[Rfam]
The family of this 99-nucleotide sequence from Enterococcus sp. PFB1-1 is "THF (Tetrahydrofolate) riboswitch aptamer". NCBI's taxonomy places the organism under Bacteria, Bacilli, Lactobacillales, Enterococcaceae, Enterococcus. Its family is annotated with tetrahydrofolate metabolic process in the Gene Ontology. The base pairs follow the family's consensus structure, which is taken from published work. Tetrahydrofolate (THF) riboswitch was first reported for Ames et al. as an RNA motif in 5' untranslated (5'-UTR)regions of folate transport and biosynthesis genes in Firmicutes genomes. The literature on the family includes a 2010 paper in Chem Biol by Ames et al., "A eubacterial riboswitch class that senses the coenzyme tetrahydrofolate".

RNA sequence: AACAGAGUAGGAAAUAAAGCGUUAAGUGCUGAGGGGAUGGGAUGUUGCCUUUCGGACGAAGAAUCAUUGAUUCGCGGUUUUAUUUUCGCAUUCGCUGCA
Numbered sequence: 001a002a003c004a005g006a007g008u009a010g011g012a013a014a015u016a017a018a019g020c021g022u023u024a025a026g027u028g029c030u031g032a033g034g035g036g037a038u039g040g041g042a043u044g045u046u047g048c049c050u051u052u053c054g055g056a057c058g059a060a061g062a063a064u065c066a067u068u069g070a071u072u073c074g075c076g077g078u079u080u081u082a083u084u085u086u087c088g089c090a091u092u093c094g095c096u097g098c099a
Stems, first nucleotide, its partner, number of pairs: 003097003010087010020076003026057002029055008040093005061073004

It scores 89 bits against the family's covariance model.